[Rfam]
Nucleotides: 287
Stems, first nucleotide, its partner, number of pairs: 018138008026075003029071003033067004037061005042055002045052002083130001085128001090118003094114003150205002162192006169185002171182002211280001213278001214273005228262004235256002239249004
Number, partner (000 for none) and nucleotide at each position: 001000u002000u003000u004000u005000c006000u007000u008000u009000a010000c011000a012000a013000a014000a015000c016000a017000c018138g019137g020136a021135u022134c023133u024132g025131u026075g027074c028073c029071c030070a031069g032000c033067c034066g035065u036064c037061c038060u039059c040058u041057g042055c043054u044000u045052g046051c047000c048000a049000c050000g051046g052045u053000g054043a055042g056000u057041c058040a059039g060038g061037g062000u063000c064036g065035a066034u067033g068000g069031c070030u071029g072000c073028g074027g075026c076000a077000g078000u079000u080000c081000g082000a083130u084000c085128a086000c087000c088000u089000a090118u091117g092116g093000a094114g095113c096112c097000a098000u099000c100000a101000c102000u103000a104000u105000u106000c107000u108000a109000c110000a111000u112096g113095g114094u115000g116092u117091c118090a119000a120000u121000u122000u123000u124000c125000c126000a127000a128085u129000c130083g131025a132024c133023a134022g135021a136020u137019c138018c139000c140000a141000g142000a143000g144000a145000a146000u147000c148000c149000a150205g151204a152000g153000u154000c155000u156000u157000g158000a159000a160000a161000a162192g163191c164190c165189a166188g167187g168000a169185u170184c171182g172181c173000c174000g175000u176000a177000a178000a179000a180000a181172g182171c183000u184170g185169a186000g187167c188166c189165u190164g191163g192162u193000g194000g195000c196000c197000u198000u199000g200000a201000c202000g203000u204151u205150u206000c207000u208000g209000g210000a211280g212000a213278c214273g215272u216271c217270a218269u219000a220000u221000u222000c223000c224000a225000c226000c227000c228262c229261u230260u231259u232000u233000u234000u235256c236255c237000g238000a239249g240248a241247u242246c243000g244000u245000c246242g247241a248240u249239c250000u251000a252000u253000g254000a255236g256235g257000u258000u259231g260230a261229g262228g263000a264000a265000a266000a267000c268000c269218a270217u271216g272215a273214c274000u275000u276000u277000c278213g279000c280211c281000u282000a283000c284000a285000u286000u287000c